[Rfam]
Notes: The record is a 127-nucleotide sequence from Neotoma lepida, which matches "Small nucleolar RNA SNORA26" in Rfam. The match comes from Rfam's covariance-model search (72 bits). Its Rfam clan is "SNORA27 clan". Rfam's curators write: The snoRNA HBI-6 belong to the H/ACA family of snoRNAs, guiding the pseudouridylation of position U4522 if the 28S rRNA. HBI-6 is the human orthologue of mouse MBI-6 snoRNA. Gene Ontology terms of the family: nucleolus and RNA processing. By type it is an H/ACA-box small nucleolar RNA. A reference for the family is Huttenhofer et al. (2001), "RNomics: an experimental approach that identifies 201 candidates for novel, small, non-messenger RNAs in mouse", EMBO J.

RNA sequence: CUGUCCUUUUAAGGUCACCAUUGUGCUUUAAGAGGCUAAGAGUUAACAGCAGGGUGAAAGAACUCCGCAUCAAAUCCAGGGAGGAGACUGAACAUCUCCUCUUUGGAUCCUGUCUGGAGUCAUAGAU
Numbered sequence: 001c002u003g004u005c006c007u008u009u010u011a012a013g014g015u016c017a018c019c020a021u022u023g024u025g026c027u028u029u030a031a032g033a034g035g036c037u038a039a040g041a042g043u044u045a046a047c048a049g050c051a052g053g054g055u056g057a058a059a060g061a062a063c064u065c066c067g068c069a070u071c072a073a074a075u076c077c078a079g080g081g082a083g084g085a086g087a088c089u090g091a092a093c094a095u096c097u098c099c100u101c102u103u104u105g106g107a108u109c110c111u112g113u114c115u116g117g118a119g120u121c122a123u124a125g126a127u
Stems, first nucleotide, its partner, number of pairs: 002056006009049002015039001017037001019035001021032001065119001068116002076106007084098003089094001
Dot-bracket structure: .((((((.((....(.(.(.(..........)..).).)........)).))))))........(..((......(((((((.(((..(....).))).)))))))........))..)........